[Rfam]
Nucleotides: 104
Stems, first nucleotide, its partner, number of pairs: 003103001023081004
Number, partner (000 for none) and nucleotide at each position: 001000g002000c003103c004000a005000u006000u007000c008000c009000a010000u011000g012000a013000u014000g015000a016000a017000c018000u019000a020000u021000u022000u023081c024080g025079g026078a027000u028000g029000u030000a031000a032000a033000u034000u035000c036000a037000g038000u039000a040000u041000a042000a043000c044000u045000u046000c047000u048000g049000a050000a051000u052000u053000g054000c055000g056000c057000a058000a059000a060000c061000a062000u063000a064000c065000c066000a067000u068000g069000u070000u071000g072000a073000u074000a075000c076000u077000u078026u079025c080024c081023g082000u083000u084000g085000c086000c087000u088000u089000c090000c091000u092000u093000c094000u095000g096000a097000c098000c099000a100000a101000c102000u103003g104000c
A member of the RNA family "Small nucleolar RNA Z13/snr52" from Lasiosphaeris hirsuta, 104 nucleotides long. Rfam classes the family as a C/D-box small nucleolar RNA. The family's consensus secondary structure was predicted with PFOLD. Rfam 15.1 lists 1,203 matches to the family in 866 species.